[Rfam]
RNA sequence: AAGAGAAGUCAAUGAUGGUUUCAUCUAACAUUGUCUGAACCUGUCUGACGCAUCUCAAUGAUGCAGUGUUUGUGGUUUCUGAGACUUCUCUGUAU
Numbered sequence: 001a002a003g004a005g006a007a008g009u010c011a012a013u014g015a016u017g018g019u020u021u022c023a024u025c026u027a028a029c030a031u032u033g034u035c036u037g038a039a040c041c042u043g044u045c046u047g048a049c050g051c052a053u054c055u056c057a058a059u060g061a062u063g064c065a066g067u068g069u070u071u072g073u074g075g076u077u078u079c080u081g082a083g084a085c086u087u088c089u090c091u092g093u094a095u
Stems, first nucleotide, its partner, number of pairs: 004089007

Small nucleolar RNA SNORD91 family: a 95-nucleotide RNA sequence from Sorex araneus. For this family Rfam cites "RNomics: an experimental approach that identifies 201 candidates for novel, small, non-messenger RNAs in mouse" (Huttenhofer et al., EMBO J, 2001). The source organism's lineage runs through Eukaryota, Bilateria, Teleostomi, Boreoeutheria and Sorex.